[Rfam]
Shown here is an 87-nucleotide RNA from Paenibacillus validus, a member of the family "c-di-GMP-I riboswitch aptamer".
RNA sequence: AAAUACCUACGGCAAACUCGUUCGAAAGGCGGGGACGCAAAGCCACAGGUCUUCCGCAGUUUCUGCGAUGAUGGCUGGGUUGCAAUU
Number, nucleotide and partner (000 for none) at each position: 001a000002a000003a000004u000005a000006c000007c000008u000009a000010c000011g000012g038013c037014a000015a000016a000017c033018u032019c031020g030021u000022u029023c028024g000025a000026a000027a000028g023029g022030c020031g019032g018033g017034g000035a000036c000037g013038c012039a000040a000041a081042g080043c079044c078045a000046c077047a076048g075049g072050u071051c070052u000053u000054c000055c000056g066057c065058a064059g063060u000061u000062u000063c059064u058065g057066c056067g000068a000069u000070g051071a050072u049073g000074g000075c048076u047077g046078g044079g043080u042081u041082g000083c000084a000085a000086u000087u000